[Rfam]
RNA sequence: UUACUUACCUGGACGGGGUCAAUGGGCGAUCCACAAGACCCAUGGCCUAGGUUGACGACCUCCAUUGCACUCCGGAGGGGCGUCCGCCUAAGGUCAGCCCAAGUAGUUGAGCCUACGUCAUAAUUUGUGCCAGCAGGGGCCUGCGUUCGCGCGGCCCCUUU
Numbered sequence: 001u002u003a004c005u006u007a008c009c010u011g012g013a014c015g016g017g018g019u020c021a022a023u024g025g026g027c028g029a030u031c032c033a034c035a036a037g038a039c040c041c042a043u044g045g046c047c048u049a050g051g052u053u054g055a056c057g058a059c060c061u062c063c064a065u066u067g068c069a070c071u072c073c074g075g076a077g078g079g080g081c082g083u084c085c086g087c088c089u090a091a092g093g094u095c096a097g098c099c100c101a102a103g104u105a106g107u108u109g110a111g112c113c114u115a116c117g118u119c120a121u122a123a124u125u126u127g128u129g130c131c132a133g134c135a136g137g138g139g140c141c142u143g144c145g146u147u148c149g150c151g152c153g154g155c156c157c158c159u160u161u
Stems, first nucleotide, its partner, number of pairs: 012119004016048006023042004049089003053086001055083003059079003062075002091114003094110003098106001135160005142153004

The record is a 161-nucleotide RNA from Actinidia chinensis, which matches "U1 spliceosomal RNA" in Rfam. It is annotated as a spliceosomal small nuclear RNA. A reference for the family is Charenton et al. (2019), "Mechanism of 5' splice site transfer for human spliceosome activation", Science.